[Rfam]
RNA sequence: CAUCAAGAAUGGCAGCGCUAAGUAACUGGCUAGCUGCCUAGCAACCCGGAUCUCACGACCAGGGUGCUCCAGUAGAAGAUGUGGCCCCAGCAAUAGCUGGGGCAAAUCGUGGGGC
Numbered sequence: 001c002a003u004c005a006a007g008a009a010u011g012g013c014a015g016c017g018c019u020a021a022g023u024a025a026c027u028g029g030c031u032a033g034c035u036g037c038c039u040a041g042c043a044a045c046c047c048g049g050a051u052c053u054c055a056c057g058a059c060c061a062g063g064g065u066g067c068u069c070c071a072g073u074a075g076a077a078g079a080u081g082u083g084g085c086c087c088c089a090g091c092a093a094u095a096g097c098u099g100g101g102g103c104a105a106a107u108c109g110u111g112g113g114g115c
Stems, first nucleotide, its partner, number of pairs: 001081004009039001011038006021031002040068003045064003049059001084103008